The family of this 68-nucleotide RNA from Xiphorhynchus elegans is "mir-338 microRNA precursor family". The family's consensus secondary structure was predicted with RNAalifold. Taxonomically the source falls in Xiphorhynchus (Eukaryota, Sarcopterygii, Archosauria, Dinosauria).
RNA sequence: CUAGCAACACUAUCCUGAUGCUGUCAGAGUACGUGGUAAAUCUCCAGCAUCAGUGAUUUUGUUGUUAG
Numbered sequence: 001c002u003a004g005c006a007a008c009a010c011u012a013u014c015c016u017g018a019u020g021c022u023g024u025c026a027g028a029g030u031a032c033g034u035g036g037u038a039a040a041u042c043u044c045c046a047g048c049a050u051c052a053g054u055g056a057u058u059u060u061g062u063u064g065u066u067a068g
Stems, first nucleotide, its partner, number of pairs: 006063004012057003015053009
Dot-bracket structure: .....((((..((((((((((((.....................))))))))).)))..)))).....
For this family Rfam cites "The developmental miRNA profiles of zebrafish as determined by small RNA cloning" (Chen et al., Genes Dev, 2005).